[Rfam]
RNA sequence: ACCACCCUUUUCUCGGGGUUGUGCUAUUGUCCAAUAGCGCAUAGUGAGGGCAGUACUGCCAGCGCCUAAACAACGCACCUUCAUAAACUAGAGCUUUGCUUUACCUUGGUGCAAUUUUUGGAAAA
Number, nucleotide and partner (000 for none) at each position: 001a000002c000003c000004a000005c000006c018007c017008u016009u015010u000011u000012c000013u000014c000015g009016g008017g007018g006019u000020u000021g059022u058023g057024c000025u000026a054027u053028u052029g051030u050031c049032c048033a000034a000035u000036a000037g045038c044039g000040c000041a000042u000043a000044g038045u037046g000047a000048g032049g031050g030051c029052a028053g027054u026055a000056c000057u023058g022059c021060c000061a000062g000063c000064g000065c000066c000067u000068a000069a000070a000071c000072a000073a000074c000075g112076c111077a110078c109079c108080u000081u000082c000083a000084u000085a000086a000087a000088c000089u103090a102091g101092a100093g099094c098095u000096u000097u000098g094099c093100u092101u091102u090103a089104c000105c000106u000107u000108g079109g078110u077111g076112c075113a000114a000115u000116u000117u000118u000119u000120g000121g000122a000123a000124a000125a000
RNA: U4atac minor spliceosomal RNA